[Rfam]
The record is a 318-nucleotide sequence from Spongiivirga citrea, which matches "Bacterial RNase P class A" in Rfam.
Nucleotides: 318
Base pairs, nucleotide, nucleotide: 002313003312004311005310006309007308008307009306010305012271013270014269015268016267017266018265020040022038023037024036025035026034027033045302046301047300049299050298051297052296053295054173055172056171057170061207062206063205064204066169067168068167069166070165071085072084073083074082075081086108087106088105089104090103091102092101093100094099109164110163114162115161116158117157132145133144134143135142177228178227179226180225188218189217190216191215192214199211200210201209202208235254236253237252238251239250240249241248242247
Number, partner (000 for none) and nucleotide at each position: 001000u002313g003312a004311g005310c006309a007308g008307g009306u010305c011000u012271c013270c014269u015268u016267a017266u018265c019000g020040c021000u022038c023037u024036g025035a026034c027033g028000g029000c030000u031000a032000g033027c034026g035025u036024c037023a038022g039000u040020g041000a042000g043000g044000a045302a046301a047300g048000u049299c050298c051297g052296g053295a054173c055172a056171c057170c058000a059000u060000a061207g062206c063205g064204c065000a066169g067168c068167g069166u070165a071085g072084c073083g074082g075081g076000u077000a078000a079000c080000a081075c082074c083073c084072g085071u086108c087106a088105c089104c090103u091102c092101a093100a094099u095000g096000u097000a098000a099094a100093u101092u102091g103090a104089g105088g106087u107000a108086g109164g110163a111000c112000c113000a114162g115161u116158g117157c118000a119000a120000c121000a122000g123000a124000a125000a126000g127000a128000a129000u130000g131000u132145a133144c134143a135142g136000a137000u138000a139000a140000u141000g142135c143134u144133g145132u146000a147000g148000u149000g150000a151000a152000a153000u154000c155000a156000g157117g158116u159000a160000a161115a162114c163110u164109c165070u166069a167068c168067g169066c170057g171056g172055u173054g174000c175000a176000a177228c178227g179226c180225c181000a182000u183000g184000u185000a186000a187000a188218c189217c190216g191215a192214c193000a194000u195000u196000u197000g198000a199211g200210g201209g202208c203000u204064g205063c206062g207061c208202g209201c210200u211199c212000g213000a214192g215191u216190c217189g218188g219000a220000g221000g222000g223000u224000a225180g226179g227178c228177g229000g230000u231000u232000a233000g234000a235254u236253c237252c238251u239250a240249g241248c242247g243000g244000u245000a246000a247242c248241g249240u250239u251238a252237g253236g254235a255000c256000u257000a258000g259000a260000u261000a262000a263000a264000u265018g266017a267016u268015a269014a270013g271012g272000g273000c274000u275000u276000a277000g278000u279000u280000u281000a282000c283000u284000a285000a286000g287000u288000u289000a290000c291000a292000g293000a294000a295053u296052c297051c298050g299049g300047c301046u302045u303000a304000u305010g306009a307008c308007c309006u310005g311004c312003u313002u314000u315000u316000u317000u318000u
Source information: The literature on the family includes a 1999 paper in Nucleic Acids Res by Brown, "The Ribonuclease P Database".